[Rfam]
RNA sequence: UGAUUUCUUGCUUCAACCGUGUUUGGACAGAAGAGA
Numbered sequence: 001u002g003a004u005u006u007c008u009u010g011c012u013u014c015a016a017c018c019g020u021g022u023u024u025g026g027a028c029a030g031a032a033g034a035g036a
Base pairs, nucleotide, nucleotide: 001036004033005032006031007030008029010028012027013026014025015024016023017021